[Rfam]
RNA sequence: AAACCGGUUCUUCUCAGAACCAUCACAAACUCACAAGAGAGAUUAAU
Numbered sequence: 001a002a003a004c005c006g007g008u009u010c011u012u013c014u015c016a017g018a019a020c021c022a023u024c025a026c027a028a029a030c031u032c033a034c035a036a037g038a039g040a041g042a043u044u045a046a047u
Base pairs, nucleotide, nucleotide: 006021007020008019009018010017011016